[Rfam]
RNA sequence: AACCCCUGGUUAGACCAGGGGUUCCAAAAAGCUUUAGCGAUGAGUCUUUGAAGGUUUAAAACAAAACACCUUUGAUGGUAAGAUAAGAAUGCGGUCCGUCAACUGCAAACCUAUCCACAUCAAAGG
Numbered sequence: 001a002a003c004c005c006c007u008g009g010u011u012a013g014a015c016c017a018g019g020g021g022u023u024c025c026a027a028a029a030a031g032c033u034u035u036a037g038c039g040a041u042g043a044g045u046c047u048u049u050g051a052a053g054g055u056u057u058a059a060a061a062c063a064a065a066a067c068a069c070c071u072u073u074g075a076u077g078g079u080a081a082g083a084u085a086a087g088a089a090u091g092c093g094g095u096c097c098g099u100c101a102a103c104u105g106c107a108a109a110c111c112u113a114u115c116c117a118c119a120u121c122a123a124a125g126g
Stems, first nucleotide, its partner, number of pairs: 001023010028049004032044003069126009079117001082115003087110001090107006
The family of this 126-nucleotide sequence from Megasphaera cerevisiae is "STnc490 Hfq binding RNA". The family's RNA type in Rfam is small RNA. The organism belongs to Megasphaera cerevisiae, within Bacteria.